[Rfam]
RNA sequence: AUGCGAUGAGUCGAUUGUGGUUUAUACCACAUACGCUAAGGAGAUCAUAAUGCAGGAGCAGAUCUUGGCAAGUUGUGUGAACCUGCUUGCCACACUUAAUCAAAAGUGCCUUUUCCCUUGUAAUAACAAGGGCUUUU
Numbered sequence: 001a002u003g004c005g006a007u008g009a010g011u012c013g014a015u016u017g018u019g020g021u022u023u024a025u026a027c028c029a030c031a032u033a034c035g036c037u038a039a040g041g042a043g044a045u046c047a048u049a050a051u052g053c054a055g056g057a058g059c060a061g062a063u064c065u066u067g068g069c070a071a072g073u074u075g076u077g078u079g080a081a082c083c084u085g086c087u088u089g090c091c092a093c094a095c096u097u098a099a100u101c102a103a104a105a106g107u108g109c110c111u112u113u114u115c116c117c118u119u120g121u122a123a124u125a126a127c128a129a130g131g132g133c134u135u136u137u
Base pairs, nucleotide, nucleotide: 012035013034016031017030018029019028020027021026038112039111040110041109042065043064044063045062051060052059053058066092067091068090069089070088071087072086073085093108094107095106096105115132116131117130118129119128120127121126